[Rfam]
RNA sequence: GACGUGUGCGCGUCAAGUGCCCGCCAGACAGGGAGUUGCUGGCAGGACGAAGGGAAGUUCCCGCGGUGCACAUAUCGCAUCCC
Numbered sequence: 001g002a003c004g005u006g007u008g009c010g011c012g013u014c015a016a017g018u019g020c021c022c023g024c025c026a027g028a029c030a031g032g033g034a035g036u037u038g039c040u041g042g043c044a045g046g047a048c049g050a051a052g053g054g055a056a057g058u059u060c061c062c063g064c065g066g067u068g069c070a071c072a073u074a075u076c077g078c079a080u081c082c083c
Base pairs, nucleotide, nucleotide: 001076002075004073005072006071007070008069009068010067011065012064013063017048018047020046021045023043024042025041026040027039031082032081033080035078052062053061054060055059

About this RNA:
The record is an 83-nucleotide RNA from Clostridium sp. CAG:81, which matches "THF (Tetrahydrofolate) riboswitch aptamer" in Rfam. It scores 61 bits against the family's covariance model. Rfam describes the family as follows. Tetrahydrofolate (THF) riboswitch was first reported for Ames et al. as an RNA motif in 5' untranslated (5'-UTR)regions of folate transport and biosynthesis genes in Firmicutes genomes. NCBI's taxonomy places the organism under Bacteria, Bacillati, Eubacteriales, Clostridiaceae, Clostridium. Its family is annotated with tetrahydrofolate metabolic process in the Gene Ontology.